[Rfam]
RNA: Selenocysteine insertion sequence 1
Organism: Eptatretus burgeri
RNA sequence: CCCUCACCGGAUGACGGGAUUGGGGCAAAGCCUUUGGGACCCCCAAUCUUUGAUGAUAGGAGGG
Number, nucleotide and partner (000 for none) at each position: 001c064002c063003c062004u061005c060006a000007c000008c000009g000010g000011a000012u000013g000014a000015c000016g050017g049018g048019a047020u046021u045022g044023g043024g042025g041026c000027a000028a000029a000030g000031c038032c037033u000034u000035u000036g000037g032038g031039a000040c000041c025042c024043c023044c022045a021046a020047u019048c018049u017050u016051u000052g000053a000054u000055g000056a000057u000058a000059g000060g005061a004062g003063g002064g001